[Rfam]
RNA: Small nucleolar RNA Z122
Organism: Acer yangbiense
RNA sequence: UUUGGGAAAUGAUGUUAAGAUACAAGUCGAUUAUCAGAGGCACCAGCAAUGCUGAUCAUAGUUGCACGUCUGUCUGAUCCCAAA
Numbered sequence: 001u002u003u004g005g006g007a008a009a010u011g012a013u014g015u016u017a018a019g020a021u022a023c024a025a026g027u028c029g030a031u032u033a034u035c036a037g038a039g040g041c042a043c044c045a046g047c048a049a050u051g052c053u054g055a056u057c058a059u060a061g062u063u064g065c066a067c068g069u070c071u072g073u074c075u076g077a078u079c080c081c082a083a084a
Stems, first nucleotide, its partner, number of pairs: 001084007